The family of this 356-nucleotide sequence from Roseivivax marinus is "Alphaproteobacteria transfer-messenger RNA".
The source organism's lineage runs through Bacteria, Pseudomonadota, Rhodobacterales, Roseobacteraceae and Roseivivax.
It is annotated as a non-coding RNA gene.
The family's consensus secondary structure is taken from published work.
RNA sequence: CCCCUUUGCACGGACGACCGGGGCGCCUAUGUUGUGAACUGUCUCGGCAACGGGACUAUGGGCAUAAACGCGCUCGUAAUAAGCGGAUCGGACCCGGGGGCGGUACCCGGCGGCUCCACCAAACAUCCCGUCGUUGGGGGAUCAUGGGGCCGAAAUAGGAUCGACGAACGUGUAAAGGGGUGGCUUUGUCCCGGUGAGAUACCACCGUUAUCGGUUCAUUAAGCAUAAUUGCCAACGACAAUCGUGCUCCGGUUGCCCUCGCUGCGUAAGCAGUGCGGAAAACCGAUCUUUGAAGCCCAGCUCCUCUAGCAAGGACUGGCGGGGUUCGCAGGCACCUGGCAACAGAAGCCUGCACU
Numbered sequence: 001c002c003c004c005u006u007u008g009c010a011c012g013g014a015c016g017a018c019c020g021g022g023g024c025g026c027c028u029a030u031g032u033u034g035u036g037a038a039c040u041g042u043c044u045c046g047g048c049a050a051c052g053g054g055a056c057u058a059u060g061g062g063c064a065u066a067a068a069c070g071c072g073c074u075c076g077u078a079a080u081a082a083g084c085g086g087a088u089c090g091g092a093c094c095c096g097g098g099g100g101c102g103g104u105a106c107c108c109g110g111c112g113g114c115u116c117c118a119c120c121a122a123a124c125a126u127c128c129c130g131u132c133g134u135u136g137g138g139g140g141a142u143c144a145u146g147g148g149g150c151c152g153a154a155a156u157a158g159g160a161u162c163g164a165c166g167a168a169c170g171u172g173u174a175a176a177g178g179g180g181u182g183g184c185u186u187u188g189u190c191c192c193g194g195u196g197a198g199a200u201a202c203c204a205c206c207g208u209u210a211u212c213g214g215u216u217c218a219u220u221a222a223g224c225a226u227a228a229u230u231g232c233c234a235a236c237g238a239c240a241a242u243c244g245u246g247c248u249c250c251g252g253u254u255g256c257c258c259u260c261g262c263u264g265c266g267u268a269a270g271c272a273g274u275g276c277g278g279a280a281a282a283c284c285g286a287u288c289u290u291u292g293a294a295g296c297c298c299a300g301c302u303c304c305u306c307u308a309g310c311a312a313g314g315a316c317u318g319g320c321g322g323g324g325u326u327c328g329c330a331g332g333c334a335c336c337u338g339g340c341a342a343c344a345g346a347a348g349c350c351u352g353c354a355c356u
Base pairs, nucleotide, nucleotide: 041056042055043054044053045052060191061190062189063188064187070184071183072181073180074179075178084170085169088167089166090165094110095109096108097107098106111152112151113150114149115148116147117146192207193206194205195204198217199216201215202214203213322337323336324335325334328353329352330351331350332349333348